[Rfam]
RNA sequence: CUGUAUUUUGCUUCAAUAGUGUUUGGACAGAACAG
Numbered sequence: 001c002u003g004u005a006u007u008u009u010g011c012u013u014c015a016a017u018a019g020u021g022u023u024u025g026g027a028c029a030g031a032a033c034a035g
Stems, first nucleotide, its partner, number of pairs: 001035004006031003010028001012027005017021001
Iron response element I: a 35-nucleotide sequence from Myotis myotis. Lineage of the source: Eukaryota > Euteleostomi > Dipnotetrapodomorpha > Chiroptera > Myotis. Rfam links the family to the GO term response to iron ion. Pairs were carried over by alignment from the consensus structure, which is taken from published work.